ALIL pseudoknot: a 117-nucleotide RNA sequence from Labrenzia sp. 011. It scores 104 bits against the family's covariance model. By type it is a cis-regulatory element.
RNA sequence: GGCUUAUUUUGCGAUGGCGGAGCUCGACCGCCGGUCGAAGUGAUGGUGUCAUUUAUCGACAUGCAUCGCGCGGAGCAUGGGGUCGAGCCGAUCUGCACUGUCCUGCCGAUUGCCCCC
Numbered sequence: 001g002g003c004u005u006a007u008u009u010u011g012c013g014a015u016g017g018c019g020g021a022g023c024u025c026g027a028c029c030g031c032c033g034g035u036c037g038a039a040g041u042g043a044u045g046g047u048g049u050c051a052u053u054u055a056u057c058g059a060c061a062u063g064c065a066u067c068g069c070g071c072g073g074a075g076c077a078u079g080g081g082g083u084c085g086a087g088c089c090g091a092u093c094u095g096c097a098c099u100g101u102c103c104u105g106c107c108g109a110u111u112g113c114c115c116c117c
Stems, first nucleotide, its partner, number of pairs: 016032005079116004089112002092109002095106003
Dot-bracket structure: ...............(((((.......)))))..............................................((((......((.((.(((......))).)).)))))).